[Rfam]
RNA: mir-46/mir-47/mir-281 microRNA precursor family
RNA sequence: GGGUCUGCUCUAUGAAGAGAGCUAUCCGUGGACAGUGAUAGUUCUGCACAACUGUCAUGGAGUUGCUCUCUUUAUGGAUAGGCUU
Numbered sequence: 001g002g003g004u005c006u007g008c009u010c011u012a013u014g015a016a017g018a019g020a021g022c023u024a025u026c027c028g029u030g031g032a033c034a035g036u037g038a039u040a041g042u043u044c045u046g047c048a049c050a051a052c053u054g055u056c057a058u059g060g061a062g063u064u065g066c067u068c069u070c071u072u073u074a075u076g077g078a079u080a081g082g083c084u085u
Stems, first nucleotide, its partner, number of pairs: 014073005020067003025061004031056003035052002